Description
Glycine riboswitch aptamer: a 116-nucleotide sequence from Paralcaligenes ureilyticus. A search with the family's covariance model found it, with a score of 57 bits. Gene Ontology term of the family: glycine biosynthetic process.
RNA sequence: GGGCAGCACUCUGGAGAGACUCGCGCACCCCAUUGGGCGGCGUCGCGAGCGCCGAAGGUGAAAACCCGCGCGAAGGUUGCGGGCUAACUCUCAGGCAAAAGGACAGAGGGGCGGUG
Numbered sequence: 001g002g003g004c005a006g007c008a009c010u011c012u013g014g015a016g017a018g019a020c021u022c023g024c025g026c027a028c029c030c031c032a033u034u035g036g037g038c039g040g041c042g043u044c045g046c047g048a049g050c051g052c053c054g055a056a057g058g059u060g061a062a063a064a065c066c067c068g069c070g071c072g073a074a075g076g077u078u079g080c081g082g083g084c085u086a087a088c089u090c091u092c093a094g095g096c097a098a099a100a101g102g103a104c105a106g107a108g109g110g111g112c113g114g115u116g
Base pairs, nucleotide, nucleotide: 007110009108010107011106012105013104020049021048022047023046024045025044051096052095053094054092055091058090060088065083066082067081068080069079070078